[Rfam]
RNA sequence: GUUUGAACAAGGCAAACCAUGGCGAAAGCAUGGGACGCAAAGCCACCGGCCUACGGACGCUGAACAAUCGUAUCAGUCAGUCACGGUAGCGGGGUUGCCAGC
Dot-bracket structure: ...........((...((((.((....))))))...))..((((.((((((....(((.....................)))..)))..)))))))......
RNA: c-di-GMP-I riboswitch aptamer
Organism: Salinivibrio sp. KP-1